[Rfam]
Shown here is a 79-nucleotide sequence from Sinorhizobium medicae, a member of the family "Makes More Granules Regulator RNA (mmgR)". Pairs were carried over by alignment from the consensus structure. Rfam's curators put it in the seed alignment.
RNA sequence: AGCUGUUCCCCUCUGGAGGUUUGAAACCUUCACAACUGAAAGGGCCCAAGUUUUCUUGUGGCCCUCUUUUUUUGCACGU
Dot-bracket structure: .......(.((...)).).......................(((((((((....)))).)))))...............